Notes: Rfam assigns this 91-nucleotide RNA sequence from Triticum aestivum to the family "Small nucleolar RNA Z159/U59". Rfam classes the family as a C/D-box small nucleolar RNA. Rfam links the family to the GO terms nucleolus and RNA processing. Lineage of the source: Eukaryota > Embryophyta > Tracheophyta > Spermatophyta > Triticum. The base pairs follow the family's consensus structure, which was predicted with PFOLD. A reference for the family is Chen et al. (2003), "The high diversity of snoRNAs in plants: identification and comparative study of 120 snoRNA genes from Oryza sativa", Nucleic Acids Res.

[Rfam]
RNA sequence: CUGUCUGACGAUGAUCAAACUAAAUACUUUCGUUCUUCUGAUGCACUAAGGUGCGAUGUGGAAGCAAUUUGGAGACCUGAACUGAGGAUUA
Numbered sequence: 001c002u003g004u005c006u007g008a009c010g011a012u013g014a015u016c017a018a019a020c021u022a023a024a025u026a027c028u029u030u031c032g033u034u035c036u037u038c039u040g041a042u043g044c045a046c047u048a049a050g051g052u053g054c055g056a057u058g059u060g061g062a063a064g065c066a067a068u069u070u071g072g073a074g075a076c077c078u079g080a081a082c083u084g085a086g087g088a089u090u091a
Base pairs, nucleotide, nucleotide: 003089004088005087006086